RNA: Small nucleolar RNA Z221/R21b
RNA sequence: UGCGCUAGGAUGAGAACAUAGUCAUGCACCACUCUGAUUGAGAUUCGUCUCAUCUGUGCUGAUAAUGACAAAAUACCCAUUUACAUCUCUGAGCCA
Numbered sequence: 001u002g003c004g005c006u007a008g009g010a011u012g013a014g015a016a017c018a019u020a021g022u023c024a025u026g027c028a029c030c031a032c033u034c035u036g037a038u039u040g041a042g043a044u045u046c047g048u049c050u051c052a053u054c055u056g057u058g059c060u061g062a063u064a065a066u067g068a069c070a071a072a073a074u075a076c077c078c079a080u081u082u083a084c085a086u087c088u089c090u091g092a093g094c095c096a
Base pairs, nucleotide, nucleotide: 001096002095004094005093